RNA sequence: CAUCGCCGCGCGGGAGAGCCCGGUGACGCAGGCGGUCGGGAGCACCCCGGCCGAGCGCCGCCGGCACCGUAGGAGCAAGCUCCCCGCCAACCUCUCAGGUCCCAGCACCGCGCGGCGAGG
Numbered sequence: 001c002a003u004c005g006c007c008g009c010g011c012g013g014g015a016g017a018g019c020c021c022g023g024u025g026a027c028g029c030a031g032g033c034g035g036u037c038g039g040g041a042g043c044a045c046c047c048c049g050g051c052c053g054a055g056c057g058c059c060g061c062c063g064g065c066a067c068c069g070u071a072g073g074a075g076c077a078a079g080c081u082c083c084c085c086g087c088c089a090a091c092c093u094c095u096c097a098g099g100u101c102c103c104a105g106c107a108c109c110g111c112g113c114g115g116c117g118a119g120g
Base pairs, nucleotide, nucleotide: 006115007114008113009112010111011110012109013108020064021063022062023061024060025059066100067099068098069096073094074093075092079087080086